[Rfam]
RNA sequence: GGUAUUUGAUCCGACAUGGUGUUUAGCAGCGGCCCGUUCCUCGUGGAUGGGUGCACCUGGUUUACACUGGGCCAGCAUCGGUUCUGGGAGCCAUAUACGGGGUUCGUGAAUGUGGCCCUUCGAUUCUGUCGGAGGGUGUUAUAGCGCGGACAUCUUGUGGCUAGCCGGGACCGGGGACUGCGGUGACUUGUCACCAAGGAUGCUGGCAGAACGAGCAAAUACCACCCGUCUUGAAACAUGG
Numbered sequence: 001g002g003u004a005u006u007u008g009a010u011c012c013g014a015c016a017u018g019g020u021g022u023u024u025a026g027c028a029g030c031g032g033c034c035c036g037u038u039c040c041u042c043g044u045g046g047a048u049g050g051g052u053g054c055a056c057c058u059g060g061u062u063u064a065c066a067c068u069g070g071g072c073c074a075g076c077a078u079c080g081g082u083u084c085u086g087g088g089a090g091c092c093a094u095a096u097a098c099g100g101g102g103u104u105c106g107u108g109a110a111u112g113u114g115g116c117c118c119u120u121c122g123a124u125u126c127u128g129u130c131g132g133a134g135g136g137u138g139u140u141a142u143a144g145c146g147c148g149g150a151c152a153u154c155u156u157g158u159g160g161c162u163a164g165c166c167g168g169g170a171c172c173g174g175g176g177a178c179u180g181c182g183g184u185g186a187c188u189u190g191u192c193a194c195c196a197a198g199g200a201u202g203c204u205g206g207c208a209g210a211a212c213g214a215g216c217a218a219a220u221a222c223c224a225c226c227c228g229u230c231u232u233g234a235a236a237c238a239u240g241g
Base pairs, nucleotide, nucleotide: 001223002222003221004220005219006218007217008216010214011213017069021067022066024064025063026062073205074204075203076202077201078200079199226241227240228239229238

Notes
The family of this 241-nucleotide part of an RNA from Brettanomyces bruxellensis is "Eukaryotic large subunit ribosomal RNA". The literature on the family includes a 2001 paper in Science by Yusupov et al., "Crystal structure of the ribosome at 5.5 A resolution". Lineage of the source: Eukaryota > Ascomycota > Pichiomycetes > Pichiales > Brettanomyces. The family's consensus secondary structure is taken from published work.